[Rfam]
RNA sequence: AAUUUCAGCUGAAAAAAUCAUGAACAUAAAAGUUGUAGAACUCAUUAAGAGCUACAACUUUUAUUUUGGUUAUUUCUUCAUCCGACAAAGCGAUAGUAACAUUGUUCACAAAAUUUGCAUAUCUCUCUUAUAGCUUAUGAAACCAUAUAUGACAUAUGCUAAUUUUGUAAACAAUGUUACUAUCGCUUUGUCGGAUGAAGAAAUGACUAAAAUAAAAGUUAUAGAUCUUGAUAAGUUAUACAACUUUGUUGUUGAUGACUUUUUCAGUUGAAAUC
Dot-bracket structure: .............(((.((((.((.(...((((((((.((((.(((((((.((..((((((((((((.(((((((.(((((.((((((((((.((((((.((((((.(((((.((.((((((........(.(.((...)).).)........)))))).)).))))).)))))).)))))).)))))))))).))))).))))))).))))))))))))..)).))))))).)))).))))))))...).)).)))).))).............
Shown here is a 275-nucleotide RNA from Oryza nivara, a member of the family "MIR821 microRNA precursor family". The literature on the family includes a 2006 paper in FEBS Lett by Luo et al., "Rice embryogenic calli express a unique set of microRNAs, suggesting regulatory roles of microRNAs in plant post-embryogenic development". Pairs were carried over by alignment from the consensus structure, which was predicted with RNAalifold. NCBI's taxonomy places the organism under Eukaryota, Streptophytina, Magnoliopsida, Oryzinae, Oryza.